Overview
The record is a 225-nucleotide part of an RNA from Melanomma pulvis-pyrius, which matches "Eukaryotic large subunit ribosomal RNA" in Rfam. A search with the family's covariance model found it, with a score of 2400 bits. The source organism's lineage runs through Eukaryota, leotiomyceta, Melanommataceae, Melanomma and Melanomma pulvis-pyrius.
RNA sequence: GCUUGCAGCUAGACGUGCCUGUAGUUGCUUAUUUAGGGAUUUCCCUAGUGCACUCUUCUAUAAGCAGGCUAGUAUUAGUUUAGGCAGUUAGAGAAAGACCUGUGUUACGUAGCUCUCUUUAAAGAGUGUUAUAGAGCAGGUAGAAUGCAACUAGCCUAGACUAAAGUCUGCGUAUCUGCUAGAAUGCUAGCGUAAUAGCUGUAAGCAGCCUGUUUUAAAACAUAG
Numbered sequence: 001g002c003u004u005g006c007a008g009c010u011a012g013a014c015g016u017g018c019c020u021g022u023a024g025u026u027g028c029u030u031a032u033u034u035a036g037g038g039a040u041u042u043c044c045c046u047a048g049u050g051c052a053c054u055c056u057u058c059u060a061u062a063a064g065c066a067g068g069c070u071a072g073u074a075u076u077a078g079u080u081u082a083g084g085c086a087g088u089u090a091g092a093g094a095a096a097g098a099c100c101u102g103u104g105u106u107a108c109g110u111a112g113c114u115c116u117c118u119u120u121a122a123a124g125a126g127u128g129u130u131a132u133a134g135a136g137c138a139g140g141u142a143g144a145a146u147g148c149a150a151c152u153a154g155c156c157u158a159g160a161c162u163a164a165a166g167u168c169u170g171c172g173u174a175u176c177u178g179c180u181a182g183a184a185u186g187c188u189a190g191c192g193u194a195a196u197a198g199c200u201g202u203a204a205g206c207a208g209c210c211u212g213u214u215u216u217a218a219a220a221c222a223u224a225g
Stems, first nucleotide, its partner, number of pairs: 001206011016066003020062004070189007210225004